Description
Rfam assigns this 79-nucleotide RNA sequence from Danio rerio to the family "mir-221 microRNA precursor family". Taxonomically the source falls in Danio (Eukaryota, Teleostomi, Actinopterygii, Cypriniformes).
RNA sequence: CUCCUCCUGUGCUCAGUGGUCAGUGUAGGUCCUGCAGCGACAGCAGCUACAUCCGGCUACUGGGUCUCUGAUGACCGAC
Numbered sequence: 001c002u003c004c005u006c007c008u009g010u011g012c013u014c015a016g017u018g019g020u021c022a023g024u025g026u027a028g029g030u031c032c033u034g035c036a037g038c039g040a041c042a043g044c045a046g047c048u049a050c051a052u053c054c055g056g057c058u059a060c061u062g063g064g065u066c067u068c069u070g071a072u073g074a075c076c077g078a079c
Base pairs, nucleotide, nucleotide: 013063014062015061016060017059018058020056021055023052024051025050026049027048028047032046033045034044035043
Dot-bracket structure: ............((((((.((.((((((...((((.......))))))))))..)).))))))................
Rfam links the family to the GO terms RISC complex and miRNA-mediated post-transcriptional gene silencing.